The record is a 141-nucleotide sequence from Afipia sp. GAS231, which matches "Alphaproteobacterial sRNA BjrC1505" in Rfam. By type it is a small RNA. The pairing is the family consensus, mapped onto this sequence. The source organism's lineage runs through Bacteria, Pseudomonadati, Alphaproteobacteria, Hyphomicrobiales and Afipia. It scores 141 bits against the family's covariance model. For this family Rfam cites "Small RNAs of the Bradyrhizobium/Rhodopseudomonas lineage and their analysis" (Madhugiri et al., RNA Biol, 2012).
RNA sequence: UCGCUCAUUUACGAUCGAUUAAGCUUUCUCGAUUAUGACUUGGAUCGUCCUCGUUUGGACACCGAGUGGCUCCUGUCCACUCUGUUUGACGCCUCCCUGUUAUCAACUUCAAAAGCCGCCGGAAACGGCGGCUCUUUUUUG
Numbered sequence: 001u002c003g004c005u006c007a008u009u010u011a012c013g014a015u016c017g018a019u020u021a022a023g024c025u026u027u028c029u030c031g032a033u034u035a036u037g038a039c040u041u042g043g044a045u046c047g048u049c050c051u052c053g054u055u056u057g058g059a060c061a062c063c064g065a066g067u068g069g070c071u072c073c074u075g076u077c078c079a080c081u082c083u084g085u086u087u088g089a090c091g092c093c094u095c096c097c098u099g100u101u102a103u104c105a106a107c108u109u110c111a112a113a114a115g116c117c118g119c120c121g122g123a124a125a126c127g128g129c130g131g132c133u134c135u136u137u138u139u140u141g
Stems, first nucleotide, its partner, number of pairs: 001043003005014002015037001020035003024031001047060004064082006088101004111136002114133008